[Rfam]
RNA sequence: ACGGUGUUCCGCUGCAAAUGAACGUGCAAGAGCAUCUG
Numbered sequence: 001a002c003g004g005u006g007u008u009c010c011g012c013u014g015c016a017a018a019u020g021a022a023c024g025u026g027c028a029a030g031a032g033c034a035u036c037u038g
Stems, first nucleotide, its partner, number of pairs: 003036007013028004

The family of this 38-nucleotide RNA sequence from Mesobacillus persicus is "Ribosomal protein L19 leader".
The base pairs follow the family's consensus structure, which was predicted with CMfinder.
This family is a putative r-protein leader autoregulatory structure found in B. subtilis and other low-GC Gram-positive bacteria. It is located in the 5' untranslated regions of mRNAs encoding ribosomal protein L19 (rplS).
The literature on the family includes a 1994 paper in Prog Nucleic Acid Res Mol Biol by Zengel and Lindahl, "Diverse mechanisms for regulating ribosomal protein synthesis in Escherichia coli".